[Rfam]
RNA sequence: CACAACUAAUGAUUCGACAGUUGGAAUGAAAGCAGUCAUGUUUGCCGAAACAACUGGUUUAAUACUCCUAUAUGCUCUUGGUUAUAACAGUAACCAAGGGUGUAAAGCUAGGUAAAGUCGGCUGAACAAUGCCUAAGUGAAGUAGCUAAUUCAUAGGGCAAAGGAUAAGUCGGAACGCUAUAAA
Numbered sequence: 001c002a003c004a005a006c007u008a009a010u011g012a013u014u015c016g017a018c019a020g021u022u023g024g025a026a027u028g029a030a031a032g033c034a035g036u037c038a039u040g041u042u043u044g045c046c047g048a049a050a051c052a053a054c055u056g057g058u059u060u061a062a063u064a065c066u067c068c069u070a071u072a073u074g075c076u077c078u079u080g081g082u083u084a085u086a087a088c089a090g091u092a093a094c095c096a097a098g099g100g101u102g103u104a105a106a107g108c109u110a111g112g113u114a115a116a117g118u119c120g121g122c123u124g125a126a127c128a129a130u131g132c133c134u135a136a137g138u139g140a141a142g143u144a145g146c147u148a149a150u151u152c153a154u155a156g157g158g159c160a161a162a163g164g165a166u167a168a169g170u171c172g173g174a175a176c177g178c179u180a181u182a183a184a
Base pairs, nucleotide, nucleotide: 018056019055020054021053022052023051032045033044034043057176058175059174060173067112068111069110070109071104072103073102074101075100076099077098078097079096080095081094082093083092084091119172120171121170122169123168127163130160131159132158133156134155135154139152140151
RNA: Group II catalytic intron D1-D4-5
Organism: Vagococcus vulneris